Antisense RNA which regulates isiA expression: a 178-nucleotide RNA from Gomphosphaeria aponina. The literature on the family includes a 2006 paper in Proc Natl Acad Sci U S A by Duhring et al., "An internal antisense RNA regulates expression of the photosynthesis gene isiA".

RNA sequence: GAUAGCCAUAAAUUGUCAUGGGAUUGAGAGUAGGCUCAGUAACUAAGCGAACUUCCUCAAUAGUUGAGUCGUAAAGUCCGCCCCAAAACAUCGCUUUUGCCACCAAAAGCAACGCCCCAGCGCCCAAAAAUAGUAGGUGAUGUCCCAAAAUUAAGCCCAGUUGCUUGGGUUCAUUCCA
Numbered sequence: 001g002a003u004a005g006c007c008a009u010a011a012a013u014u015g016u017c018a019u020g021g022g023a024u025u026g027a028g029a030g031u032a033g034g035c036u037c038a039g040u041a042a043c044u045a046a047g048c049g050a051a052c053u054u055c056c057u058c059a060a061u062a063g064u065u066g067a068g069u070c071g072u073a074a075a076g077u078c079c080g081c082c083c084c085a086a087a088a089c090a091u092c093g094c095u096u097u098u099g100c101c102a103c104c105a106a107a108a109g110c111a112a113c114g115c116c117c118c119a120g121c122g123c124c125c126a127a128a129a130a131u132a133g134u135a136g137g138u139g140a141u142g143u144c145c146c147a148a149a150a151u152u153a154a155g156c157c158c159a160g161u162u163g164c165u166u167g168g169g170u171u172c173a174u175u176c177c178a
Stems, first nucleotide, its partner, number of pairs: 136175005144169005